[Rfam]
RNA: bZIP non canonical Hac1/Xbp1 intron
Organism: Paecilomyces variotii
RNA sequence: GAGUCCGCCGACCUGACACAACAUCCUGCAGCGAUGUUGUGUGACCUGCAGUGUCAGUCGGCGCACUC
Numbered sequence: 001g002a003g004u005c006c007g008c009c010g011a012c013c014u015g016a017c018a019c020a021a022c023a024u025c026c027u028g029c030a031g032c033g034a035u036g037u038u039g040u041g042u043g044a045c046c047u048g049c050a051g052u053g054u055c056a057g058u059c060g061g062c063g064c065a066c067u068c
Stems, first nucleotide, its partner, number of pairs: 001068004006063002009060004020038006043055003